[Rfam]
Description:
Rfam assigns this 86-nucleotide RNA sequence from Pseudorhodoplanes sinuspersici to the family "Bradyrhizobiaceae sRNA BjrC68". Taxonomically the source falls in Pseudorhodoplanes (Bacteria, Pseudomonadati, Pseudomonadota, Alphaproteobacteria). Rfam classes the family as a small RNA.

RNA sequence: CCAGAGUCGCGCGGCGGGGCGUAUACCCGGCACCGCCCCUUCGCCGGAUGGAGGCCUCGGUCGCAAGACCGGGGCCUCUUUCGUUG
Numbered sequence: 001c002c003a004g005a006g007u008c009g010c011g012c013g014g015c016g017g018g019g020c021g022u023a024u025a026c027c028c029g030g031c032a033c034c035g036c037c038c039c040u041u042c043g044c045c046g047g048a049u050g051g052a053g054g055c056c057u058c059g060g061u062c063g064c065a066a067g068a069c070c071g072g073g074g075c076c077u078c079u080u081u082c083g084u085u086g
Stems, first nucleotide, its partner, number of pairs: 010047001013042002016039004052077008061068002